[Rfam]
RNA sequence: AAGUGCUACAACGCUUUUAGAAUCUGUCUAGCAGGUUUUCUGGUCCUCAUCGGAAGACCCUC
Numbered sequence: 001a002a003g004u005g006c007u008a009c010a011a012c013g014c015u016u017u018u019a020g021a022a023u024c025u026g027u028c029u030a031g032c033a034g035g036u037u038u039u040c041u042g043g044u045c046c047u048c049a050u051c052g053g054a055a056g057a058c059c060c061u062c
Base pairs, nucleotide, nucleotide: 034059035058036057037056038055039054040053041052042051043050044049
A member of the RNA family "U7 small nuclear RNA" from Equus asinus, 62 nucleotides long. Pairs were carried over by alignment from the consensus structure, which was predicted with PFOLD. A reference for the family is Marz et al. (2007), "U7 snRNAs: a computational survey", Genomics Proteomics Bioinformatics. Rfam's curators write: Animal histone pre-mRNAs are spliced by a different mechanism than nuclear pre-mRNAs and self-splicing introns. This processing involves the U7 snRNP, which contains only one RNA species: U7. The 5' end of U7 RNA is thought to base-pair to a conserved spacer element downstream of the cleavage site in histone pre-mRNA. This family contains a number of annotated U7 pseudogenes.